[Rfam]
Description
The record is a 79-nucleotide RNA from Candidatus Enterococcus clewellii, which matches "Fluoride riboswitch aptamer (crcB RNA motif)" in Rfam. It scores 50 bits against the family's covariance model.
RNA sequence: AGAGCAAUAGGGAAUGAAGUUCUCCCUAGACAGUGUAUGUCAAAACCGCAAUUAUUUUGCUGAUGACUUCUACCACCAU
Numbered sequence: 001a002g003a004g005c006a007a008u009a010g011g012g013a014a015u016g017a018a019g020u021u022c023u024c025c026c027u028a029g030a031c032a033g034u035g036u037a038u039g040u041c042a043a044a045a046c047c048g049c050a051a052u053u054a055u056u057u058u059g060c061u062g063a064u065g066a067c068u069u070c071u072a073c074c075a076c077c078a079u
Base pairs, nucleotide, nucleotide: 010026011025012024013023016070017069018068019067020066021065048060049059050058051057